A member of the RNA family "Small nucleolar RNA Z103" from Ziziphus jujuba, 102 nucleotides long. NCBI's taxonomy places the organism under Eukaryota, Embryophyta, Pentapetalae, rosids, Ziziphus. It scores 91 bits against the family's covariance model. A reference for the family is Chen et al. (2003), "The high diversity of snoRNAs in plants: identification and comparative study of 120 snoRNA genes from Oryza sativa", Nucleic Acids Res. Rfam links the family to the GO terms nucleolus and RNA processing. It is annotated as a C/D-box small nucleolar RNA. Pairs were carried over by alignment from the consensus structure, which was predicted with PFOLD.

[Rfam]
RNA sequence: AUGGAAGUGAGGAUUUUUUCCCCAGAUGAUCGACGCUGAUUAAACUGCGCUUAUUUUUAUUUUCUCAUUCUCUUGAGAAUCCAAGCCAGAAUUCUGAUCCGU
Numbered sequence: 001a002u003g004g005a006a007g008u009g010a011g012g013a014u015u016u017u018u019u020c021c022c023c024a025g026a027u028g029a030u031c032g033a034c035g036c037u038g039a040u041u042a043a044a045c046u047g048c049g050c051u052u053a054u055u056u057u058u059a060u061u062u063u064c065u066c067a068u069u070c071u072c073u074u075g076a077g078a079a080u081c082c083a084a085g086c087c088a089g090a091a092u093u094c095u096g097a098u099c100c101g102u
Stems, first nucleotide, its partner, number of pairs: 001102005